Small nucleolar RNA SNORA71: a 132-nucleotide RNA sequence from Callithrix jacchus. About the family: The members of this family belong to the H/ACA class of snoRNAs which bind a number of proteins (including dyskerin, Gar1p and Nop10p) to form snoRNP complexes. This class of snoRNAs are thought to guide the sites of modification of uridines to pseudouridines by forming direct base pairing interactions with substrate RNAs. This family includes U71 (SNORA71), ACA39 (SNORA39) and ACA60 (SNORA60). U71 and ACA60 are predicted to guide the pseudouridylation of U406 and U1004 in 18S rRNA respectively. There is currently no target RNA identified for ACA39. Rfam classes the family as an H/ACA-box small nucleolar RNA. The literature on the family includes a 1997 paper in Genes Dev by Ganot et al., "The family of box ACA small nucleolar RNAs is defined by an evolutionarily conserved secondary structure and ubiquitous sequence elements essential for RNA accumulation". Pairs were carried over by alignment from the consensus structure, which was predicted with PFOLD. NCBI's taxonomy places the organism under Eukaryota, Teleostomi, Sarcopterygii, Amniota, Callithrix.

RNA sequence: GUCUGCAUCUGAAAGUGAUCAUCAGCUUCCUGUGUAUUGGUCAUCAAUAGUACAGGUAGGGGAACUGCACAGAGAAUUUCUGUGUUUGGAGGGUCCAUCUCCAUCCUUGGAAACCCUUCUGCUUUUCUCACA
Numbered sequence: 001g002u003c004u005g006c007a008u009c010u011g012a013a014a015g016u017g018a019u020c021a022u023c024a025g026c027u028u029c030c031u032g033u034g035u036a037u038u039g040g041u042c043a044u045c046a047a048u049a050g051u052a053c054a055g056g057u058a059g060g061g062g063a064a065c066u067g068c069a070c071a072g073a074g075a076a077u078u079u080c081u082g083u084g085u086u087u088g089g090a091g092g093g094u095c096c097a098u099c100u101c102c103a104u105c106c107u108u109g110g111a112a113a114c115c116c117u118u119c120u121g122c123u124u125u126u127c128u129c130a131c132a
Base pairs, nucleotide, nucleotide: 001057002056003055004054005053007051008050015044016043017042018041019040020039021038025035026034067129069128071126072125073123074122084114085113086112087111090108091107092106093105